[Rfam]
RNA sequence: GUUCUAGCUCCUGUCGCGCGACUCCCAGCCACUCGGCGCCCGGACGCACCUUCCCCGGUGUCCGGACGCGAGGUGGAUGGGGAUCGGACGACAGGAACGGAGCAGCGG
Numbered sequence: 001g002u003u004c005u006a007g008c009u010c011c012u013g014u015c016g017c018g019c020g021a022c023u024c025c026c027a028g029c030c031a032c033u034c035g036g037c038g039c040c041c042g043g044a045c046g047c048a049c050c051u052u053c054c055c056c057g058g059u060g061u062c063c064g065g066a067c068g069c070g071a072g073g074u075g076g077a078u079g080g081g082g083a084u085c086g087g088a089c090g091a092c093a094g095g096a097a098c099g100g101a102g103c104a105g106c107g108g
Stems, first nucleotide, its partner, number of pairs: 010095007020085002023082005029076004033071002036069003040065008
RNA: mraW RNA
Organism: Rathayibacter tanaceti